The record is a 125-nucleotide RNA sequence from Oryzias latipes, which matches "Small nucleolar RNA SNORA71" in Rfam. Rfam's curators put it in the seed alignment. Gene Ontology terms of the family: nucleolus and RNA processing. Lineage of the source: Eukaryota > Bilateria > Neoteleostei > Atherinomorphae > Oryzias. About the family: The members of this family belong to the H/ACA class of snoRNAs which bind a number of proteins (including dyskerin, Gar1p and Nop10p) to form snoRNP complexes. This class of snoRNAs are thought to guide the sites of modification of uridines to pseudouridines by forming direct base pairing interactions with substrate RNAs. Pairs were carried over by alignment from the consensus structure, which was predicted with PFOLD.

RNA sequence: UCCUGUAUCGAAAGUGACCAUGGCGUGCAUGUUGCCAGGUCAUUGAUAGUACAGGAAAAUCAAAGUGAGAGCAUUUUCCCGUGUUUGAAAGAUCUGUUCUUUUUGAACCCUGGCGCUCUCAGACA
Numbered sequence: 001u002c003c004u005g006u007a008u009c010g011a012a013a014g015u016g017a018c019c020a021u022g023g024c025g026u027g028c029a030u031g032u033u034g035c036c037a038g039g040u041c042a043u044u045g046a047u048a049g050u051a052c053a054g055g056a057a058a059a060u061c062a063a064a065g066u067g068a069g070a071g072c073a074u075u076u077u078c079c080c081g082u083g084u085u086u087g088a089a090a091g092a093u094c095u096g097u098u099c100u101u102u103u104u105g106a107a108c109c110c111u112g113g114c115g116c117u118c119u120c121a122g123a124c125a
Stems, first nucleotide, its partner, number of pairs: 001056008013044007022036004066121007083108005088102005